[Rfam]
RNA sequence: CGACUGUUACUAUGGGGGAACUAUUGGUGUGAUUUGCUAUUUUAAUCAUAUCACAGCCAUUAGUUACUUCACAGUGAUAGUUC
Numbered sequence: 001c002g003a004c005u006g007u008u009a010c011u012a013u014g015g016g017g018g019a020a021c022u023a024u025u026g027g028u029g030u031g032a033u034u035u036g037c038u039a040u041u042u043u044a045a046u047c048a049u050a051u052c053a054c055a056g057c058c059a060u061u062a063g064u065u066a067c068u069u070c071a072c073a074g075u076g077a078u079a080g081u082u083c
Stems, first nucleotide, its partner, number of pairs: 003081009016069003019065004025059001026057001028055006035048002
Description
A member of the RNA family "mir-2944 microRNA precursor family" from Asbolus verrucosus, 83 nucleotides long. The base pairs follow the family's consensus structure, which was predicted with RNAalifold. The source organism's lineage runs through Eukaryota, Pancrustacea, Neoptera, Polyphaga and Asbolus.